[Rfam]
RNA sequence: AGCUUUGCGCAGCGGCAGUAUCGUAGCCAGUGAGGUUUAUCUAAGGCGCGAUUAUUGUUAAUUGAAAACUUUUCAUAACAUUGUUAUGUACCUUAAAUAUGCACUGUGAAAUUUAUUUUGAAAAACCCUUGGAUUAGUGAUAAGGGGU
Numbered sequence: 001a002g003c004u005u006u007g008c009g010c011a012g013c014g015g016c017a018g019u020a021u022c023g024u025a026g027c028c029a030g031u032g033a034g035g036u037u038u039a040u041c042u043a044a045g046g047c048g049c050g051a052u053u054a055u056u057g058u059u060a061a062u063u064g065a066a067a068a069c070u071u072u073u074c075a076u077a078a079c080a081u082u083g084u085u086a087u088g089u090a091c092c093u094u095a096a097a098u099a100u101g102c103a104c105u106g107u108g109a110a111a112u113u114u115a116u117u118u119u120g121a122a123a124a125a126c127c128c129u130u131g132g133a134u135u136a137g138u139g140a141u142a143a144g145g146g147g148u
Stems, first nucleotide, its partner, number of pairs: 020052005026047003034042002084109003088104002091101001093099001125148006
RNA: U4 spliceosomal RNA
Organism: Octodon degus